The record is a 118-nucleotide sequence from Candidatus Hakubella thermalkaliphila, which matches "Molybdenum/Tungsten riboswitch aptamer (Moco RNA motif)" in Rfam. Taxonomically the source falls in Candidatus Hakubella (Bacteria, Bacillati, Actinomycetota, Candidatus Hakubellaceae). Pairs were carried over by alignment from the consensus structure, which is taken from published work. A search with the family's covariance model found it, with a score of 68 bits.
RNA sequence: ACUUAAUAGAUUCUCCGAGCUAUUCAUCCUAAGGAGCUAUCUAAGGAUAACAGCCGAUAGGGUUUAGCUGGAAACGGCUAGGCCUCCCGUGGCGGAAAGGAGACUGGGAAUACGAAGG
Numbered sequence: 001a002c003u004u005a006a007u008a009g010a011u012u013c014u015c016c017g018a019g020c021u022a023u024u025c026a027u028c029c030u031a032a033g034g035a036g037c038u039a040u041c042u043a044a045g046g047a048u049a050a051c052a053g054c055c056g057a058u059a060g061g062g063u064u065u066a067g068c069u070g071g072a073a074a075c076g077g078c079u080a081g082g083c084c085u086c087c088c089g090u091g092g093c094g095g096a097a098a099g100g101a102g103a104c105u106g107g108g109a110a111u112a113c114g115a116a117g118g
Stems, first nucleotide, its partner, number of pairs: 003112001012103005019054003023050002027047003033042003060085011086095002